Glycine riboswitch aptamer: a 90-nucleotide sequence from Methylobacterium radiodurans. The base pairs follow the family's consensus structure.

[Rfam]
RNA sequence: CAUAGACGAGCGGGAGAGAGCCGGUGCGAACCGGCCGCCGAAGGAGCAACCGCCCCGGAAACUCUCAGGCACCCGGACCGCUCGUUCGUU
Numbered sequence: 001c002a003u004a005g006a007c008g009a010g011c012g013g014g015a016g017a018g019a020g021c022c023g024g025u026g027c028g029a030a031c032c033g034g035c036c037g038c039c040g041a042a043g044g045a046g047c048a049a050c051c052g053c054c055c056c057g058g059a060a061a062c063u064c065u066c067a068g069g070c071a072c073c074c075g076g077a078c079c080g081c082u083c084g085u086u087c088g089u090u
Base pairs, nucleotide, nucleotide: 006085007084008083009082010081011080012079013078020035021034022033023032037070038069039068040066041065044064045063046062050058051057